[Rfam]
RNA: Small nucleolar RNA Z199
Organism: Brachypodium distachyon
RNA sequence: GGUCAAGUGAUGAUGUAUAACUGCAACAAUAUGACAGGAGUUAAUAUUUUCCUGUGAUUCCUAGUUUUAAGACUGAUGAUC
Numbered sequence: 001g002g003u004c005a006a007g008u009g010a011u012g013a014u015g016u017a018u019a020a021c022u023g024c025a026a027c028a029a030u031a032u033g034a035c036a037g038g039a040g041u042u043a044a045u046a047u048u049u050u051c052c053u054g055u056g057a058u059u060c061c062u063a064g065u066u067u068u069a070a071g072a073c074u075g076a077u078g079a080u081c
Stems, first nucleotide, its partner, number of pairs: 001080001003079003036053005
Dot-bracket structure: (.(((..............................(((((........))))).......................)))).